[Rfam]
RNA sequence: GGUGGUUCUUGGGUGAUACACCCUGAAAUCAGGCUCCUUUCUUUCUGGUACCAGGUGCAUCACCCGAGAACUGCA
Numbered sequence: 001g002g003u004g005g006u007u008c009u010u011g012g013g014u015g016a017u018a019c020a021c022c023c024u025g026a027a028a029u030c031a032g033g034c035u036c037c038u039u040u041c042u043u044u045c046u047g048g049u050a051c052c053a054g055g056u057g058c059a060u061c062a063c064c065c066g067a068g069a070a071c072u073g074c075a
Base pairs, nucleotide, nucleotide: 002074003073005071006070007069008068009067010066011065012064013063014062015061016060017059019057020056021055022054025052028049029048030047031046032045033044
The family of this 75-nucleotide sequence from Myotis myotis is "mir-9223 microRNA precursor family". Gene Ontology terms of the family: miRNA-mediated post-transcriptional gene silencing and RISC complex.